This 80-nucleotide RNA from Pantoea sp. Nvir belongs to the Rfam family "RpsF leader". NCBI's taxonomy places the organism under Bacteria, Pseudomonadota, Enterobacterales, Erwiniaceae, Pantoea. From the family's description: Conserved and widely distributed to many bacterial species RNA structure. It precedes operon containing rpsF, which encodes ribosomal protein S6. The motif also precedes operon containing rpsR, which encodes ribosomal protein S18. The base pairs follow the family's consensus structure.
RNA sequence: GCCUGUAAUGUUCCUUGCUUCCAAGGGUCACAAGAGACCCUCAUAGGAGGCUGCGUAAUCCAUAAGGAGCAAUUUCGAUG
Number, nucleotide and partner (000 for none) at each position: 001g000002c000003c000004u000005g000006u000007a000008a000009u000010g070011u069012u068013c067014c066015u065016u064017g051018c050019u049020u048021c047022c046023a000024a000025g040026g039027g038028u000029c000030a000031c000032a000033a000034g000035a000036g000037a000038c027039c026040c025041u000042c000043a000044u000045a000046g022047g021048a020049g019050g018051c017052u000053g000054c000055g000056u000057a000058a000059u000060c000061c000062a000063u000064a016065a015066g014067g013068a012069g011070c010071a000072a000073u000074u000075u000076c000077g000078a000079u000080g000